[Rfam]
RNA: Small nucleolar RNA Z266
Organism: Digitaria exilis
Nucleotides: 089
Stems, first nucleotide, its partner, number of pairs: 001089010
Number, partner (000 for none) and nucleotide at each position: 001089g002088a003087u004086u005085g006084g007083c008082a009081g010080g011000a012000g013000u014000g015000a016000u017000g018000a019000a020000u021000c022000a023000a024000u025000u026000a027000g028000a029000u030000g031000u032000g033000c034000g035000a036000a037000g038000u039000g040000a041000c042000c043000u044000u045000a046000u047000g048000a049000g050000c051000u052000g053000a054000a055000a056000c057000u058000u059000u060000g061000a062000g063000g064000c065000a066000u067000a068000a069000c070000u071000u072000c073000u074000g075000u076000c077000u078000g079000a080010c081009u082008u083007g084006c085005c086004a087003a088002u089001u